[Rfam]
Nucleotides: 080
Base pairs, nucleotide, nucleotide: 002080004078005077006076
Number, partner (000 for none) and nucleotide at each position: 001000a002080u003000g004078a005077c006076a007000a008000a009000u010000u011000c012000u013000c014000c015000g016000g017000a018000a019000u020000c021000u022000c023000u024000g025000g026000a027000c028000u029000u030000c031000a032000u033000u034000g035000a036000u037000g038000a039000a040000a041000a042000u043000c044000u045000u046000u047000u048000g049000a050000a051000c052000c053000u054000u055000u056000u057000a058000u059000c060000u061000g062000a063000u064000g065000a066000c067000u068000g069000c070000c071000a072000g073000u074000u075000a076006u077005g078004u079000a080002a